RNA: c-sis internal ribosome entry site (IRES)
RNA sequence: CGGAGCAGCCGCAGCUCGCAGCCCGCAGAGGACGCCCAGAGCUGCAAGCCGGCGGGCCGACCGACCCACCGACUCGCGCGGAGUCCACCUGUCGGCCCGGCCAGGCAGAGCGCGCAGCUGGAACGCCGCGCGCGCGGAGCAGCCGUGCCCGCCGCCCGGGCCCCGCGCCAGGGCGCACACGCUCCCGCACCCCCACCCGGCCCGGGCGGGAGUUUGCACCUCUCCCUGCCCGGGUGCUCAAGCCGCCGCCGCAGAGCCAACUUUGGAAAAAGUUUUUUUGGGAGACUCGGGCUUCGAGGUGCCCAGCCAGGCGCUUUCUGAUUUGGAGGACCUUUCCAGAAAAUGUUGCAAAAAAACUAAGCCAGCGGGCAGAGGAGAACGCCUUUAGCAGGCGGGUGAAGACGAGCCACCGACUGCCGCGUUCCUUUUCCUCUCGGAGGUUGGAGUCCCCUGCGCGCCCCCACACGGCUAGACGCCUCGGCUGGUUCGCGACGCAGCCCCCCGGCCGUGGAUGCUCGCGCGGGCUCGGGAUCCGCCCAGGUAGCGGCCUCGGACCCUGGUCCCGUGCCCAGGUCCUCCCCAGCCCCCCAGCGACGGAGCCGGGGC
Dot-bracket structure: .((.((.((.((.(((.(.(((..(.(((((.(((((.(.((.....((..((.(((.....(.((.((.(...(.(...).).....).)).)))...)))..))....((.((.((.((.(((((((....))))......))).)).)).)).)).)).....))).)))))..((.((((((((.(.((.....))...).)))))))).))..))))).)..........)))).))).)).)).))....)).(((((....)))))....(.((((((((.((((......(((....((...(((....(((.....(.((.(................(........)...(((.((..(.((.(.....)..)).).)).)))..(((..(.(((((((((((((((((.(((((.(((((....)))))..)))((.(...).))......)).)))).)).....)))).))))))))..))).).)).)))).)))....)).)))..((((..(((.((((...((((....)))))))))))..))))...)))).))).))))).)...((((.((......)).)))).